RNA sequence: UGUCAGUUUCAGGGAAGGUGCAAUUCCUUACUGGCGGUAAUCGGCUAUCCCGGGAUUCAUAACGGGAUCGGCCCCAAGCCCGCGACCCGCCACCAGGCGGCUGAUUCGGUGAGAUUCCGAAGCCAACGGUAUAGUCCGGAUGGAAGAAACGAGGA
Number, nucleotide and partner (000 for none) at each position: 001u000002g000003u153004c000005a000006g150007u149008u148009u147010c146011a000012g000013g000014g000015a000016a028017g027018g026019u000020g000021c000022a000023a000024u000025u000026c018027c017028u016029u000030a135031c134032u125033g124034g083035c082036g081037g080038u000039a000040a000041u000042c000043g000044g000045c000046u000047a000048u000049c000050c000051c000052g000053g000054g000055a000056u000057u000058c000059a000060u000061a000062a000063c000064g000065g000066g000067a000068u000069c000070g000071g000072c000073c000074c000075c000076a000077a000078g000079c000080c037081c036082g035083c034084g000085a000086c000087c100088c099089g000090c000091c000092a000093c000094c000095a000096g000097g000098c000099g088100g087101c000102u000103g000104a000105u121106u120107c119108g118109g117110u000111g000112a000113g000114a000115u000116u000117c109118c108119g107120a106121a105122g000123c000124c033125a032126a000127c138128g137129g136130u000131a000132u000133a000134g031135u030136c129137c128138g127139g000140a000141u000142g000143g000144a000145a000146g010147a009148a008149a007150c006151g000152a000153g003154g000155a000
RNA: FMN riboswitch aptamer (RFN element)
Organism: Bifidobacterium oedipodis